Nucleotides: 183
Base pairs, nucleotide, nucleotide: 010060011059012058013057016056017055022054023053024052025051028048029047030046031045032044033043034042035041089108090107091106092105093104094103095102126156127155128154157176158175159174160173161172162171163170164169
Number, partner (000 for none) and nucleotide at each position: 001000a002000c003000u004000u005000c006000c007000u008000c009000g010060g011059g012058c013057u014000g015000g016056a017055a018000c019000g020000a021000a022054a023053a024052g025051c026000a027000a028048g029047u030046u031045a032044a033043g034042a035041c036000g037000c038000g039000g040000a041035g042034u043033u044032u045031u046030a047029g048028c049000a050000g051025g052024c053023u054022u055017u056016u057013g058012g059011c060010u061000u062000g063000u064000g065000g066000u067000c068000g069000u070000g071000a072000u073000g074000u075000u076000g077000u078000g079000u080000u081000u082000g083000c084000a085000a086000u087000u088000u089108g090107a091106u092105c093104u094103g095102a096000c097000c098000u099000u100000u101000u102095u103094c104093a105092g106091a107090u108089c109000u110000g111000a112000c113000u114000a115000a116000a117000u118000u119000c120000c121000u122000g123000u124000a125000g126156a127155u128154u129000a130000a131000c132000c133000c134000u135000g136000u137000c138000u139000g140000u141000c142000c143000a144000u145000a146000g147000u148000a149000a150000u151000u152000u153000u154128a155127a156126u157176a158175g159174c160173a161172c162171c163170g164169c165000c166000a167000a168000u169164g170163c171162g172161g173160u174159g175158c176157u177000u178000u179000u180000u181000u182000u183000u